[Rfam]
RNA sequence: GGAGUGGGGCUCACAAGCGCGACUAAUCGAACCCAGAUUAGUCGAGGAAAGUCCGGACUCCGUGGGCGAGGUACCGGAUAACGUCCGGAGGGAGUGAUCCCUGGAAAGGGCCAUAGAAAAGAAAACCACCUGCAAAGGUAAGGGUGGAACGGUGAGGUAAGAGCUCACCAGGCAUGGAGCAAUCCAUGUGCUUGGCAACCCCUACCUGGAGCAAGGUCGAGCAGGGAAAGGGUGGCUCCGCCCAUAUCCCGGGUAGACCGCAAGAGAAAUUUGGUAACAAAUUUCCUAGAUAGAUGCUUGUAAACAGAAUCCGGCUUAUAGCCCCACUCCUAAU
Numbered sequence: 001g002g003a004g005u006g007g008g009g010c011u012c013a014c015a016a017g018c019g020c021g022a023c024u025a026a027u028c029g030a031a032c033c034c035a036g037a038u039u040a041g042u043c044g045a046g047g048a049a050a051g052u053c054c055g056g057a058c059u060c061c062g063u064g065g066g067c068g069a070g071g072u073a074c075c076g077g078a079u080a081a082c083g084u085c086c087g088g089a090g091g092g093a094g095u096g097a098u099c100c101c102u103g104g105a106a107a108g109g110g111c112c113a114u115a116g117a118a119a120a121g122a123a124a125a126c127c128a129c130c131u132g133c134a135a136a137g138g139u140a141a142g143g144g145u146g147g148a149a150c151g152g153u154g155a156g157g158u159a160a161g162a163g164c165u166c167a168c169c170a171g172g173c174a175u176g177g178a179g180c181a182a183u184c185c186a187u188g189u190g191c192u193u194g195g196c197a198a199c200c201c202c203u204a205c206c207u208g209g210a211g212c213a214a215g216g217u218c219g220a221g222c223a224g225g226g227a228a229a230g231g232g233u234g235g236c237u238c239c240g241c242c243c244a245u246a247u248c249c250c251g252g253g254u255a256g257a258c259c260g261c262a263a264g265a266g267a268a269a270u271u272u273g274g275u276a277a278c279a280a281a282u283u284u285c286c287u288a289g290a291u292a293g294a295u296g297c298u299u300g301u302a303a304a305c306a307g308a309a310u311c312c313g314g315c316u317u318a319u320a321g322c323c324c325c326a327c328u329c330c331u332a333a334u
Stems, first nucleotide, its partner, number of pairs: 001330010013301006020044009049317003053314005058211004064238004069207005074088005089102005103202002108200002110196003126143002128139004151169006171191001172189007215259004225250002228247001230243004266285008
RNA: Bacterial RNase P class A
Organism: Thermosipho atlanticus